[Rfam]
RNA sequence: ACGUCCACCCGGUGGAACGCUCCGACGCGCGAAAGGCCCGGCCCGUUAGGCUGCCCCCAUGCGCGCCGCCCCGCAGGGGCACCGCAAAGCCGACAGCCGUCGCACCUCAGGGAGCACACCCAUG
Numbered sequence: 001a002c003g004u005c006c007a008c009c010c011g012g013u014g015g016a017a018c019g020c021u022c023c024g025a026c027g028c029g030c031g032a033a034a035g036g037c038c039c040g041g042c043c044c045g046u047u048a049g050g051c052u053g054c055c056c057c058c059a060u061g062c063g064c065g066c067c068g069c070c071c072c073g074c075a076g077g078g079g080c081a082c083c084g085c086a087a088a089g090c091c092g093a094c095a096g097c098c099g100u101c102g103c104a105c106c107u108c109a110g111g112g113a114g115c116a117c118a119c120c121c122a123u124g
Stems, first nucleotide, its partner, number of pairs: 060086004068080004089103002092101003
RNA: Streptomyces-metH RNA